[Rfam]
RNA sequence: GGAGCCAGCCAGACCGCCGCUGGUGCAAUCGCCGAAAGGCCGCACUGGAGGAAGGUCCGGACUGCAUGGAGCAGCGUAGGAGGUAACGCCUCUCCGCCGUGAGGCGAGGAUCAGAGCAACAGAGACGAGCCGGUUCAGUCCGGGUGAAACGGGCAAUCUCUACGCGCAGCAACACCAAAUAGGCCAGCAUUGAGGCGGCUCGCUGAGCUGGCGGGUAGGUGGCACCGAGCCGGGUGGGUGACCCCCGGCCCAGAUGAAUGGCGGUCACGGUGGGGCAACCCACCGCACAGAAUCCGGCCUAUCGGCUGACUCCACAC
Number, nucleotide and partner (000 for none) at each position: 001g313002g312003a311004g310005c000006c308007a307008g306009c305010c304011a302012g266013a265014c264015c263016g262017c261018c260019g000020c048021u047022g046023g045024u044025g043026c042027a000028a000029u000030c000031g000032c000033c000034g000035a000036a000037a000038g000039g000040c000041c000042g026043c025044a024045c023046u022047g021048g020049a000050g000051g000052a000053a300054g299055g298056u000057c297058c296059g295060g294061a293062c169063u168064g167065c166066a000067u000068g000069g201070a200071g199072c198073a000074g165075c164076g163077u162078a161079g093080g092081a091082g090083g089084u000085a000086a000087c000088g000089c083090c082091u081092c080093u079094c108095c106096g105097c104098c103099g000100u000101g000102a000103g098104g097105c096106g095107a000108g094109g160110a159111u000112c000113a000114g158115a157116g154117c153118a000119a000120c000121a000122g000123a000124g000125a000126c000127g000128a000129g000130c143131c142132g141133g140134u000135u000136c000137a000138g000139u000140c133141c132142g131143g130144g000145u000146g000147a000148a000149a000150c000151g000152g000153g117154c116155a000156a000157u115158c114159u110160c109161u078162a077163c076164g075165c074166g065167c064168a063169g062170c000171a000172a000173c221174a220175c219176c218177a000178a000179a000180u000181a000182g000183g212184c211185c210186a209187g208188c207189a000190u000191u000192g000193a000194g204195g203196c202197g000198g072199c071200u070201c069202g196203c195204u194205g000206a000207g188208c187209u186210g185211g184212c183213g000214g000215g000216u000217a000218g176219g175220u174221g173222g000223c000224a000225c000226c000227g000228a000229g249230c248231c247232g246233g245234g244235u000236g243237g242238g000239u000240g000241a000242c237243c236244c234245c233246c232247g231248g230249c229250c000251c000252a000253g000254a000255u000256g000257a000258a000259u000260g018261g017262c016263g015264g014265u013266c012267a000268c000269g000270g000271u000272g000273g000274g000275g000276c000277a000278a000279c000280c000281c000282a000283c000284c000285g000286c000287a000288c000289a000290g000291a000292a000293u061294c060295c059296g058297g057298c055299c054300u053301a000302u011303c000304g010305g009306c008307u007308g006309a000310c004311u003312c002313c001314a000315c000316a000317c000
Shown here is a 317-nucleotide sequence from Sphaerotilus montanus, a member of the family "Bacterial RNase P class A".
Taxonomically the source falls in Sphaerotilus (Bacteria, Pseudomonadota, Burkholderiales, Sphaerotilaceae).
By type it is a ribozyme.